[Rfam]
RNA sequence: GUAGAGUAUUCAGAAUUGCAUGUGCAAUACCAACCGAGUGCAGUCACCGCGGUGGUAAAAUAAUACGGGUGUAAAAGCCAAAAUAAACGUCUGCA
Numbered sequence: 001g002u003a004g005a006g007u008a009u010u011c012a013g014a015a016u017u018g019c020a021u022g023u024g025c026a027a028u029a030c031c032a033a034c035c036g037a038g039u040g041c042a043g044u045c046a047c048c049g050c051g052g053u054g055g056u057a058a059a060a061u062a063a064u065a066c067g068g069g070u071g072u073a074a075a076a077g078c079c080a081a082a083a084u085a086a087a088c089g090u091c092u093g094c095a
Stems, first nucleotide, its partner, number of pairs: 006066005015028005029056003034052003038047002042090001068079003
This 95-nucleotide sequence from Parapedobacter sp. SGR-10 belongs to the Rfam family "SAM-I/IV (S-adenosyl methionine) riboswitch aptamer". The match comes from Rfam's covariance-model search (50 bits). Taxonomically the source falls in Parapedobacter (Bacteria, Bacteroidota, Sphingobacteriia, Sphingobacteriaceae). The family's consensus secondary structure is taken from published work.